A member of the RNA family "Alphaproteobacteria transfer-messenger RNA" from Pelagivirga sediminicola, 353 nucleotides long.

RNA sequence: GCCCUUUGCAAACGCGCGGCGCCCGCCUAUAUUCAACUUGUCCCUUCGGGGACUAUGGACAUAAACGCGCUCGUAAUAAGCGGAUCGGACCCGGGGGCGGUACCCGGCGACUCCACCAAUUACCCUUCAUUUGGGGGCGGAUCGGGGUCGAAACAGGAUCGACGAACGUCUAAAGGGGUUAUGCUUUGUCUCGGCGGGGUGCCACCGUAUCGGCCCGAAAAGUACAAUUGCAAAUGACAAUCGUGCUCCGGUUGCUCUGGCUGCGUAAGCAGUUCGAGGAAUCGAAAACUAAGUCCUUGCGCUUUGCCGCGUAAGGCGGGGUCCGCAGGCACCUGGCAACAGAAGCCUGCACU
Numbered sequence: 001g002c003c004c005u006u007u008g009c010a011a012a013c014g015c016g017c018g019g020c021g022c023c024c025g026c027c028u029a030u031a032u033u034c035a036a037c038u039u040g041u042c043c044c045u046u047c048g049g050g051g052a053c054u055a056u057g058g059a060c061a062u063a064a065a066c067g068c069g070c071u072c073g074u075a076a077u078a079a080g081c082g083g084a085u086c087g088g089a090c091c092c093g094g095g096g097g098c099g100g101u102a103c104c105c106g107g108c109g110a111c112u113c114c115a116c117c118a119a120u121u122a123c124c125c126u127u128c129a130u131u132u133g134g135g136g137g138c139g140g141a142u143c144g145g146g147g148u149c150g151a152a153a154c155a156g157g158a159u160c161g162a163c164g165a166a167c168g169u170c171u172a173a174a175g176g177g178g179u180u181a182u183g184c185u186u187u188g189u190c191u192c193g194g195c196g197g198g199g200u201g202c203c204a205c206c207g208u209a210u211c212g213g214c215c216c217g218a219a220a221a222g223u224a225c226a227a228u229u230g231c232a233a234a235u236g237a238c239a240a241u242c243g244u245g246c247u248c249c250g251g252u253u254g255c256u257c258u259g260g261c262u263g264c265g266u267a268a269g270c271a272g273u274u275c276g277a278g279g280a281a282u283c284g285a286a287a288a289c290u291a292a293g294u295c296c297u298u299g300c301g302c303u304u305u306g307c308c309g310c311g312u313a314a315g316g317c318g319g320g321g322u323c324c325g326c327a328g329g330c331a332c333c334u335g336g337c338a339a340c341a342g343a344a345g346c347c348u349g350c351a352c353u
Stems, first nucleotide, its partner, number of pairs: 040053005057191005067184002069179004081168002085165003091107005108150007192207003198216002201214003319334004325350006

The family's RNA type in Rfam is non-coding RNA gene.